Shown here is a 47-nucleotide RNA sequence from Allokutzneria albata, a member of the family "L31-Actinobacteria ribosomal protein leader".
RNA sequence: CUGGCUCCGGUUCACCCCUCGCUCUCGCGCACGGGGACCCGGCGGCC
Numbered sequence: 001c002u003g004g005c006u007c008c009g010g011u012u013c014a015c016c017c018c019u020c021g022c023u024c025u026c027g028c029g030c031a032c033g034g035g036g037a038c039c040c041g042g043c044g045g046c047c
Stems, first nucleotide, its partner, number of pairs: 003047003007042004015036004020029002

The organism belongs to Allokutzneria, within Bacteria. It is one of the family's seed sequences.